Shown here is an 81-nucleotide RNA from Sphingomonas sp. Leaf412, a member of the family "ZMP/ZTP riboswitch aptamer (pfl RNA motif)". The organism belongs to Sphingomonas, within Bacteria. For this family Rfam cites "An ancient riboswitch class in bacteria regulates purine biosynthesis and one-carbon metabolism" (Kim et al., Mol Cell, 2015). Pairs were carried over by alignment from the consensus structure, which is taken from published work.

RNA sequence: CGGCGGUCGCGUGACUGGCGCAUUCGCGGAGCACCGCGGGGGAGCGCGACCCGCAUAUCGCCGCGCGCCUGGGCAAUCCUC
Numbered sequence: 001c002g003g004c005g006g007u008c009g010c011g012u013g014a015c016u017g018g019c020g021c022a023u024u025c026g027c028g029g030a031g032c033a034c035c036g037c038g039g040g041g042g043a044g045c046g047c048g049a050c051c052c053g054c055a056u057a058u059c060g061c062c063g064c065g066c067g068c069c070u071g072g073g074c075a076a077u078c079c080u081c
Base pairs, nucleotide, nucleotide: 005051006050007049008048009047010046011045012044015041016040017069018068019067020066021065026037027036028035029034058076060074061073062072